[Rfam]
RNA sequence: CCAAAGUGGGAAUGAUGACCUGAUUGGACUAGAGUCUCUGAGAUUUUCUCUGAGGAUCUUUGAAACCACCUGAUCCCACUCUU
Numbered sequence: 001c002c003a004a005a006g007u008g009g010g011a012a013u014g015a016u017g018a019c020c021u022g023a024u025u026g027g028a029c030u031a032g033a034g035u036c037u038c039u040g041a042g043a044u045u046u047u048c049u050c051u052g053a054g055g056a057u058c059u060u061u062g063a064a065a066c067c068a069c070c071u072g073a074u075c076c077c078a079c080u081c082u083u
Stems, first nucleotide, its partner, number of pairs: 003083002006080001007078003018074001020072001022070001024068001026066001031059003035055004040050003

About this RNA:
Small nucleolar RNA ZL8: an 83-nucleotide RNA from Chrysochloris asiatica. Rfam classes the family as a C/D-box small nucleolar RNA. A search with the family's covariance model found it, with a score of 79 bits. Taxonomically the source falls in Chrysochloris (Eukaryota, Gnathostomata, Amniota, Afrotheria). The family has 6 seed sequences and 113 matches in Rfam 15.1. The literature on the family includes a 2013 paper in Genome Biol by Kishore et al., "Insights into snoRNA biogenesis and processing from PAR-CLIP of snoRNA core proteins and small RNA sequencing". Gene Ontology terms of the family: RNA processing and nucleolus.